[Rfam]
RNA: drz-agam-1 ribozyme
Organism: Hermetia illucens
RNA sequence: UGCUGCCAAACCCUAUCUCAACCUCCAUGUGGUGAUCGUUGGGAGCCCUUUCUUAAUGAGAAACUGCAGACGGAGAAGG
Numbered sequence: 001u002g003c004u005g006c007c008a009a010a011c012c013c014u015a016u017c018u019c020a021a022c023c024u025c026c027a028u029g030u031g032g033u034g035a036u037c038g039u040u041g042g043g044a045g046c047c048c049u050u051u052c053u054u055a056a057u058g059a060g061a062a063a064c065u066g067c068a069g070a071c072g073g074a075g076a077a078g079g
Base pairs, nucleotide, nucleotide: 012079013078014077016075018073019072021033022032023031045067046066049063050062051061052060053059